The record is a 77-nucleotide sequence from Chanos chanos, which matches "mir-216 microRNA precursor family" in Rfam. The match comes from Rfam's covariance-model search (68 bits). The source organism's lineage runs through Eukaryota, Osteoglossocephalai, Otomorpha, Chanidae and Chanos. Clan: mir-216 clan.

RNA sequence: UGCUGGUGAAAUCUCAGCUGGCAACUGUGAGCUGGUGUGUGUCUGCUCUCACAGUUGCCUCUGAGAUUAUGCUAAAC
Numbered sequence: 001u002g003c004u005g006g007u008g009a010a011a012u013c014u015c016a017g018c019u020g021g022c023a024a025c026u027g028u029g030a031g032c033u034g035g036u037g038u039g040u041g042u043c044u045g046c047u048c049u050c051a052c053a054g055u056u057g058c059c060u061c062u063g064a065g066a067u068u069a070u071g072c073u074a075a076a077c
Stems, first nucleotide, its partner, number of pairs: 004074004010068008020059003023055001026053006